[Rfam]
RNA: Nitrogen stress-induced RNA 1
RNA sequence: UGGUAGAUGCACCCUGAUUAUUCCUUGGCCUUCGGGCCAGGGAAUUUUUUU
Numbered sequence: 001u002g003g004u005a006g007a008u009g010c011a012c013c014c015u016g017a018u019u020a021u022u023c024c025u026u027g028g029c030c031u032u033c034g035g036g037c038c039a040g041g042g043a044a045u046u047u048u049u050u051u
Base pairs, nucleotide, nucleotide: 002013003012004011022043023042024041025040026039027038028037029036030035